[Rfam]
RNA: U1 spliceosomal RNA
RNA sequence: AUACUUACCUGGCAGGGGAGCAUCUGUGAUCAGCAAGGCAGAGCUCCCAGGGUGAGGCUCAUCCAUUGCACAUCGGAUUUGCUGACCCCUGCGAUGUCCCCAAAUGCGGGAUUCUCGACUGUAUUAUUUCUGGUAGUGGGGGACUGCGUUCGCGCUUUCCCCUG
Numbered sequence: 001a002u003a004c005u006u007a008c009c010u011g012g013c014a015g016g017g018g019a020g021c022a023u024c025u026g027u028g029a030u031c032a033g034c035a036a037g038g039c040a041g042a043g044c045u046c047c048c049a050g051g052g053u054g055a056g057g058c059u060c061a062u063c064c065a066u067u068g069c070a071c072a073u074c075g076g077a078u079u080u081g082c083u084g085a086c087c088c089c090u091g092c093g094a095u096g097u098c099c100c101c102a103a104a105u106g107c108g109g110g111a112u113u114c115u116c117g118a119c120u121g122u123a124u125u126a127u128u129u130c131u132g133g134u135a136g137u138g139g140g141g142g143a144c145u146g147c148g149u150u151c152g153c154g155c156u157u158u159c160c161c162c163u164g
Stems, first nucleotide, its partner, number of pairs: 012122004016048006023042005049090004054086001056083003061079001063076002092117003097110001099109002138163006146155003